[Rfam]
RNA: c-di-AMP riboswitch aptamer (ydaO/yuaA leader)
RNA sequence: UAAGUAAGUCAGCCUAAUCUGUCGCUAUACCCAUACCAGGUAAAGCCAGAGCGGAGGAACCAAUCCUCGGGGCGAAUCUUGACAGCGAUUGAAAGCAAGUACAGCCCAUCUGUACGCUCUUCGGUUUUCUCGUUCUCAAGAGGGGCACCUCUCAGCCCUAGCCCGUCAGCUAACUCCGUAGGCAUUGAGGGGAGACUGA
Numbered sequence: 001u002a003a004g005u006a007a008g009u010c011a012g013c014c015u016a017a018u019c020u021g022u023c024g025c026u027a028u029a030c031c032c033a034u035a036c037c038a039g040g041u042a043a044a045g046c047c048a049g050a051g052c053g054g055a056g057g058a059a060c061c062a063a064u065c066c067u068c069g070g071g072g073c074g075a076a077u078c079u080u081g082a083c084a085g086c087g088a089u090u091g092a093a094a095g096c097a098a099g100u101a102c103a104g105c106c107c108a109u110c111u112g113u114a115c116g117c118u119c120u121u122c123g124g125u126u127u128u129c130u131c132g133u134u135c136u137c138a139a140g141a142g143g144g145g146c147a148c149c150u151c152u153c154a155g156c157c158c159u160a161g162c163c164c165g166u167c168a169g170c171u172a173a174c175u176c177c178g179u180a181g182g183c184a185u186u187g188a189g190g191g192g193a194g195a196c197u198g199a
Stems, first nucleotide, its partner, number of pairs: 012183003018050003051179006061069001070164003078140004143158004